This 271-nucleotide part of an RNA from Alexandrium catenella belongs to the Rfam family "Eukaryotic large subunit ribosomal RNA". Rfam's curators put it in the seed alignment.
[Rfam]
RNA sequence: GAGUCUAACAGAUGUGCAAGUUUGAAGGUGGUAUACCUGUGUGUGUAAUGAAAGUAUUGGCUGGGAUAUUUGCACCAGCAGCCGACUAAUUAGCAGACAGAGGUUUGAGUUGGAGCAUAUCUAUUAGGACCCGAAAGAUGGUGAACUAUGCUUGAACAGAAAGAAUUCAGAGGAAACUCUGAUGGAGGUUCGUAUCGAUACUGACGUGCAAAUCGUUCGUCAUAUUUGGGUAUAGGGGCGAAAGACUAAUCGAACCAUCUAGUAGCUGGUU
Numbered sequence: 001g002a003g004u005c006u007a008a009c010a011g012a013u014g015u016g017c018a019a020g021u022u023u024g025a026a027g028g029u030g031g032u033a034u035a036c037c038u039g040u041g042u043g044u045g046u047a048a049u050g051a052a053a054g055u056a057u058u059g060g061c062u063g064g065g066a067u068a069u070u071u072g073c074a075c076c077a078g079c080a081g082c083c084g085a086c087u088a089a090u091u092a093g094c095a096g097a098c099a100g101a102g103g104u105u106u107g108a109g110u111u112g113g114a115g116c117a118u119a120u121c122u123a124u125u126a127g128g129a130c131c132c133g134a135a136a137g138a139u140g141g142u143g144a145a146c147u148a149u150g151c152u153u154g155a156a157c158a159g160a161a162a163g164a165a166u167u168c169a170g171a172g173g174a175a176a177c178u179c180u181g182a183u184g185g186a187g188g189u190u191c192g193u194a195u196c197g198a199u200a201c202u203g204a205c206g207u208g209c210a211a212a213u214c215g216u217u218c219g220u221c222a223u224a225u226u227u228g229g230g231u232a233u234a235g236g237g238g239c240g241a242a243a244g245a246c247u248a249a250u251c252g253a254a255c256c257a258u259c260u261a262g263u264a265g266c267u268g269g270u271u
Stems, first nucleotide, its partner, number of pairs: 005127004010122008020044002026038005048055002060079005081110002083107003086103002090097002130269002133266001137259006146235011159191003167182006196219003200216002203214002237247002